[Rfam]
A member of the RNA family "mraW RNA" from Antrihabitans stalactiti, 104 nucleotides long. It scores 67 bits against the family's covariance model. The base pairs follow the family's consensus structure, which is taken from published work. The family's RNA type in Rfam is cis-regulatory element.
RNA sequence: UCAGGCGAGCGCCGCGAGGCCUCUGCCCGAGGGGGACCCUGACGCACUUCCCCAGCGCCAGGUUCCCCGCUCGGUCAGGGACCCCGCGGCACUCGCUCCCACAG
Dot-bracket structure: ..........((((((.((.(((((.(((((.((((.((((.(((.........))).)))).)).)).))))).))))).)).))))))..............